[Rfam]
RNA sequence: CGGAGAGCCCCGCGUUGCGGUCUGACCCCCGACCCCGACGGUAACGCGGGGCGAUCCC
Numbered sequence: 001c002g003g004a005g006a007g008c009c010c011c012g013c014g015u016u017g018c019g020g021u022c023u024g025a026c027c028c029c030c031g032a033c034c035c036c037g038a039c040g041g042u043a044a045c046g047c048g049g050g051g052c053g054a055u056c057c058c
Stems, first nucleotide, its partner, number of pairs: 002057003007052012020039003
The family of this 58-nucleotide RNA from Mycobacterium decipiens is "F6 TB sRNA". Pairs were carried over by alignment from the consensus structure, which is taken from published work. The match comes from Rfam's covariance-model search (66 bits). The family's RNA type in Rfam is small RNA. The literature on the family includes a 2009 paper in Mol Microbiol by Arnvig and Young, "Identification of small RNAs in Mycobacterium tuberculosis".